Shown here is an 80-nucleotide sequence from Neoasaia chiangmaiensis, a member of the family "Glycine riboswitch aptamer". The base pairs follow the family's consensus structure. It scores 36 bits against the family's covariance model. Taxonomically the source falls in Neoasaia (Bacteria, Pseudomonadati, Acetobacterales, Acetobacteraceae).

RNA sequence: GAACUUCUGGAAAGAGGCACGCCCACGCGCGUGCCCGCCGACGGGAUAGCGAUCUCAGGCAAACCGACAGAAGGGGCAAA
Numbered sequence: 001g002a003a004c005u006u007c008u009g010g011a012a013a014g015a016g017g018c019a020c021g022c023c024c025a026c027g028c029g030c031g032u033g034c035c036c037g038c039c040g041a042c043g044g045g046a047u048a049g050c051g052a053u054c055u056c057a058g059g060c061a062a063a064c065c066g067a068c069a070g071a072a073g074g075g076g077c078a079a080a
Base pairs, nucleotide, nucleotide: 004073005072006071007070008069009068016035017034018033019032037060038059039058040056041055044054045053